[Rfam]
RNA sequence: GAGUCUAACAUCCACGCGAGUGUUCGGGUGUCAAACCCGUGCGCGCAGUGAAAGCGAACGGAGGUGGGAGCCCGCAAGGGUGCACCAUCGACCGAUCCUGAAGUCUUCGGAUGGAUUUGAGUAAGAGCGUGGCUGUUGGGACCCGAAAGAUGGUGAACUAUGCCUGAAUAGGGUGAAGCCAGAGGAAACUCUGGUGGAGGCUCGCAGCGGUUCUGACGUGCAAAUCGAUCGUCAAAUUUGGGUAUAGGGGCGAAAGACUAAUCGAACCAUCUGGUAGCUGGUU
Dot-bracket structure: ....((((((.((((((..(((..(((((.....)))))..)))...((....)).......(((((..(((......)))...))))).((((((((....(....)....))).))).))....)))))).))))))..((.(...((((((...((((((((((((.((((...(((((((....)))))))....))))...((((.((.((........))))))))..).))))))))))).((.......))......))))))......).))..